A member of the RNA family "glmS glucosamine-6-phosphate activated ribozyme aptamer" from Firmicutes bacterium CAG:308, 147 nucleotides long. Taxonomically the source falls in Bacillota (Bacteria, Bacillati). Rfam classes the family as a riboswitch.

Nucleotides: 147
Base pairs, nucleotide, nucleotide: 020033021032022031023030024029042075043074044073045072046071051063052062053061054060076091077090078089079088080087097137098136099135100134101133109124110123111122112121113120114119
Number, partner (000 for none) and nucleotide at each position: 001000u002000u003000g004000a005000a006000g007000a008000g009000a010000a011000u012000a013000g014000c015000g016000c017000c018000a019000g020033g021032a022031c023030u024029g025000c026000u027000u028000g029024c030023a031022g032021u033020u034000g035000a036000c037000g038000a039000g040000g041000a042075c043074c044073a045072g046071a047000u048000u049000u050000a051063u052062c053061g054060a055000a056000a057000g058000a059000u060054u061053c062052g063051g064000c065000g066000g067000g068000u069000g070000a071046u072045c073044u074043g075042g076091a077090g078089g079088u080087u081000u082000g083000a084000u085000a086000c087080g088079a089078c090077c091076u092000u093000a094000a095000a096000a097137g098136u099135a100134u101133g102000a103000c104000a105000a106000a107000a108000a109124c110123a111122a112121u113120c114119u115000g116000u117000g118000a119114a120113g121112a122111u123110u124109g125000a126000a127000c128000a129000a130000a131000u132000u133101c134100a135099u136098a137097u138000a139000g140000g141000u142000a143000u144000c145000c146000u147000c